[Rfam]
RNA: U4 spliceosomal RNA
RNA sequence: AUCCUUGCGCUAGGGCAAUAUUCUUUUAAUGACUGCAAAGGAAGAGGAAUGAUUGCUAGUUUAAAACUAAAUCCAAGCGCCGAGAAACAGUGACUUGCUGUUUCUCAAUUUUUGAACUCGAAUUUAUUUG
Numbered sequence: 001a002u003c004c005u006u007g008c009g010c011u012a013g014g015g016c017a018a019u020a021u022u023c024u025u026u027u028a029a030u031g032a033c034u035g036c037a038a039a040g041g042a043a044g045a046g047g048a049a050u051g052a053u054u055g056c057u058a059g060u061u062u063a064a065a066a067c068u069a070a071a072u073c074c075a076a077g078c079g080c081c082g083a084g085a086a087a088c089a090g091u092g093a094c095u096u097g098c099u100g101u102u103u104c105u106c107a108a109u110u111u112u113u114g115a116a117c118u119c120g121a122a123u124u125u126a127u128u129u130g
Stems, first nucleotide, its partner, number of pairs: 020050008033040002082106011119130004